[Rfam]
RNA: mir-310 microRNA precursor family
RNA sequence: GGACAUUCAGGCCGGUAAAUGUUGUUUAAUACUGUUUAUUAUAAACAGUAUUAACAGCAUUUACCGGUCUGAAUGUCC
Numbered sequence: 001g002g003a004c005a006u007u008c009a010g011g012c013c014g015g016u017a018a019a020u021g022u023u024g025u026u027u028a029a030u031a032c033u034g035u036u037u038a039u040u041a042u043a044a045a046c047a048g049u050a051u052u053a054a055c056a057g058c059a060u061u062u063a064c065c066g067g068u069c070u071g072a073a074u075g076u077c078c
Stems, first nucleotide, its partner, number of pairs: 001078007010069002013066002016063002020059002024055001027053007